[Rfam]
RNA: c-di-AMP riboswitch aptamer (ydaO/yuaA leader)
Organism: Paenibacillus sp. JCM 10914
RNA sequence: UGAACCGUCUCGCUUAGUCUCCGCAAAAUUGGGAGAACGGGGGAACCGAUACUGCCGUGCAAUAGACAUCUUGAUCUGAUGCACGCCGCCGUAUUUGAUUUCUUUAUCGGGUCUUUGGGGUGAAUUAGAUGGUCCUCGCCAUGAGCGGGGCACUGGAUAUAGGGCGUCUCUCUUUCGUCCGAACCCGACAGCUAACCCCGGAAGCGAAGUAAGAGGGGAAAU
Numbered sequence: 001u002g003a004a005c006c007g008u009c010u011c012g013c014u015u016a017g018u019c020u021c022c023g024c025a026a027a028a029u030u031g032g033g034a035g036a037a038c039g040g041g042g043g044a045a046c047c048g049a050u051a052c053u054g055c056c057g058u059g060c061a062a063u064a065g066a067c068a069u070c071u072u073g074a075u076c077u078g079a080u081g082c083a084c085g086c087c088g089c090c091g092u093a094u095u096u097g098a099u100u101u102c103u104u105u106a107u108c109g110g111g112u113c114u115u116u117g118g119g120g121u122g123a124a125u126u127a128g129a130u131g132g133u134c135c136u137c138g139c140c141a142u143g144a145g146c147g148g149g150g151c152a153c154u155g156g157a158u159a160u161a162g163g164g165c166g167u168c169u170c171u172c173u174u175u176c177g178u179c180c181g182a183a184c185c186c187g188a189c190a191g192c193u194a195a196c197c198c199c200g201g202a203a204g205c206g207a208a209g210u211a212a213g214a215g216g217g218g219a220a221a222u
Stems, first nucleotide, its partner, number of pairs: 011206004018036005038200005047117002118186003126159002162180004